[Rfam]
RNA sequence: GGGAGCCCAAUCCCUCCCAGAAAGGCUGUGUUCGGCGCGAGCGCCCAUCCACCCCAAGCGCCAAUACGGCUGGCCCGUCCGGUUGUCCCCCCGGACGGGCC
Numbered sequence: 001g002g003g004a005g006c007c008c009a010a011u012c013c014c015u016c017c018c019a020g021a022a023a024g025g026c027u028g029u030g031u032u033c034g035g036c037g038c039g040a041g042c043g044c045c046c047a048u049c050c051a052c053c054c055c056a057a058g059c060g061c062c063a064a065u066a067c068g069g070c071u072g073g074c075c076c077g078u079c080c081g082g083u084u085g086u087c088c089c090c091c092c093g094g095a096c097g098g099g100c101c
Base pairs, nucleotide, nucleotide: 001018002017003016004015005014023071024070026069027068028067029066030065031064032063034062035061036060037059038058072101073100074099075098076097077096078095079094080093081092082091
Dot-bracket structure: (((((........)))))....((.(((((((.(((((...................))))))))))))))(((((((((((........)))))))))))
About this RNA
Shown here is a 101-nucleotide RNA sequence from Afipia sp. P52-10, a member of the family "Rhizobiales-2 RNA". NCBI's taxonomy places the organism under Bacteria, Pseudomonadota, Alphaproteobacteria, Nitrobacteraceae, Afipia. A search with the family's covariance model found it, with a score of 92 bits. The family's RNA type in Rfam is small RNA.